[Rfam]
RNA sequence: GACGAUAAACGAAUUUCGUAAUAAACAUUGCGGACGUGGGGGCAGUACCCACCACCUCCACCAUUUACAACUUAUGGGGGUGAAUCAGAAUCGACGAGUGUCUAAAGGCUGUUCUUUCGUUCGAGAUAGUUCCGACGUAACGGGCUAAUUAUAAAUGCAAAUGAUAAAUUUGCUCUUGCUGCUUAA
Dot-bracket structure: (((((........(..(........(((..((...(((((.......)))))(((((((................)))))))............)).))).......)..).....)))))((............)).................................................
RNA: permuted transfer-messenger RNA
Organism: Candidatus Pelagibacteraceae bacterium